[Rfam]
RNA sequence: AAAUUAGAUAGAGGUGCGGUUAUUAAGAGUAAGUACACCAAGCAAUCCAGCGAUGAAGUGUGCCGAAAGGAAUAAUCGCCGAAGUAAAAGGCUGUGGCAUAAGGACUUUUACUGGUUAUGUAUUUAAUAGGUACAUAACUGUCACCUAGUCAUUGGGUGGAGCACUAUCACUUAA
Numbered sequence: 001a002a003a004u005u006a007g008a009u010a011g012a013g014g015u016g017c018g019g020u021u022a023u024u025a026a027g028a029g030u031a032a033g034u035a036c037a038c039c040a041a042g043c044a045a046u047c048c049a050g051c052g053a054u055g056a057a058g059u060g061u062g063c064c065g066a067a068a069g070g071a072a073u074a075a076u077c078g079c080c081g082a083a084g085u086a087a088a089a090g091g092c093u094g095u096g097g098c099a100u101a102a103g104g105a106c107u108u109u110u111a112c113u114g115g116u117u118a119u120g121u122a123u124u125u126a127a128u129a130g131g132u133a134c135a136u137a138a139c140u141g142u143c144a145c146c147u148a149g150u151c152a153u154u155g156g157g158u159g160g161a162g163c164a165c166u167a168u169c170a171c172u173u174a175a
Base pairs, nucleotide, nucleotide: 007169008168009167010166011165016079017078018077019076020075021074022073023072024071033063034062035061036060037059038058083113084112085111086110087109088108089107090106092104093103114140115139116138117137118136119135120134121133122132123131124130142160143159144158145157146156147155148154